[Rfam]
This 118-nucleotide sequence from Gracilibacillus ureilyticus belongs to the Rfam family "SAM riboswitch aptamer (S box leader)". The family's consensus secondary structure is taken from published work. It scores 85 bits against the family's covariance model.
RNA sequence: UUCUUAUCUAGAGAGGUGGAGGGGCAGGCCCGGUGAAUCCUCGGCAACAGGUUCGAAAGUAGAACACUGUGCCAAAUCCUGCGGGACAGCAUAUAUAUAAGUACCCGGAAGAUAAGAA
Numbered sequence: 001u002u003c004u005u006a007u008c009u010a011g012a013g014a015g016g017u018g019g020a021g022g023g024g025c026a027g028g029c030c031c032g033g034u035g036a037a038u039c040c041u042c043g044g045c046a047a048c049a050g051g052u053u054c055g056a057a058a059g060u061a062g063a064a065c066a067c068u069g070u071g072c073c074a075a076a077u078c079c080u081g082c083g084g085g086a087c088a089g090c091a092u093a094u095a096u097a098u099a100a101g102u103a104c105c106c107g108g109a110a111g112a113u114a115a116g117a118a
Stems, first nucleotide, its partner, number of pairs: 001118008013042004021031003025081004043073004048069002051065004077110001082107004